[Rfam]
RNA sequence: AUCGAGACUAGAGUCACAUCUCCACAUGUUUGAUUGUCUUGGUGUGCUAUAGUUCUCGGACAUUAAUAUCUGAUCUUUAUUCACUGGCUGCGAUGUCCUGUAUCUCAGCCAGCCACCGAAUCAGAAACAAUG
Numbered sequence: 001a002u003c004g005a006g007a008c009u010a011g012a013g014u015c016a017c018a019u020c021u022c023c024a025c026a027u028g029u030u031u032g033a034u035u036g037u038c039u040u041g042g043u044g045u046g047c048u049a050u051a052g053u054u055c056u057c058g059g060a061c062a063u064u065a066a067u068a069u070c071u072g073a074u075c076u077u078u079a080u081u082c083a084c085u086g087g088c089u090g091c092g093a094u095g096u097c098c099u100g101u102a103u104c105u106c107a108g109c110c111a112g113c114c115a116c117c118g119a120a121u122c123a124g125a126a127a128c129a130a131u132g
Stems, first nucleotide, its partner, number of pairs: 002059005007053003012048002015046006024037003070124005076118001084112004089107002092104003
This 132-nucleotide RNA sequence from Scytalopus superciliaris belongs to the Rfam family "Small nucleolar RNA SNORA3/SNORA45 family". The base pairs follow the family's consensus structure, which was predicted with RNAalifold. Clan: SNORA3 clan. The members of this family belong to the H/ACA class of snoRNAs which are thought to guide the sites of modification of uridines to pseudouridines. This family includes mouse snoMBI-28 and human homologues ACA3 (SNORA3) and ACA3-2 (SNORA45). Both ACA3 and ACA3-2 share the same host gene. MBI-28, ACA3 and ACA3-2 are all predicted to guide the pseudouridylation of residues in 28S rRNA. The organism belongs to Scytalopus, within Eukaryota. It scores 84 bits against the family's covariance model. On this family, see Gu et al., Nucleic Acids Res 2005: "A novel experimental approach for systematic identification of box H/ACA snoRNAs from eukaryotes". Gene Ontology terms of the family: nucleolus and RNA processing.